[Rfam]
RNA sequence: UGGGUUGUGCAAAAGUGCUUAUAGUGCAGGUAGAACUUAGACCUACUGCACAGUAAGCACUUCCUGCAUCAUCAA
Numbered sequence: 001u002g003g004g005u006u007g008u009g010c011a012a013a014a015g016u017g018c019u020u021a022u023a024g025u026g027c028a029g030g031u032a033g034a035a036c037u038u039a040g041a042c043c044u045a046c047u048g049c050a051c052a053g054u055a056a057g058c059a060c061u062u063c064c065u066g067c068a069u070c071a072u073c074a075a
Stems, first nucleotide, its partner, number of pairs: 004072002007069001009067003013062010024051004029047005
A member of the RNA family "mir-17 microRNA precursor family" from Xenopus laevis, 75 nucleotides long. The match comes from Rfam's covariance-model search (63 bits). This family represents the microRNA (miRNA) precursor mir-17, family, which includes mir-20, mir-91, and mir-103. miRNAs are transcribed as ~70nt precursors (modelled here) and subsequently processed by the Dicer enzyme to give a ~22nt product. In this case the mature sequence comes from the 3' arm of the precursor. The extents of the hairpin precursors are not generally known and are estimated based on hairpin prediction. The literature on the family includes a 2025 paper in J Mol Biol by Liu et al., "Structural Features Within Precursor microRNA-20a Regulate Dicer-TRBP Processing". Taxonomically the source falls in Xenopus (Eukaryota, Deuterostomia, Vertebrata, Pipoidea).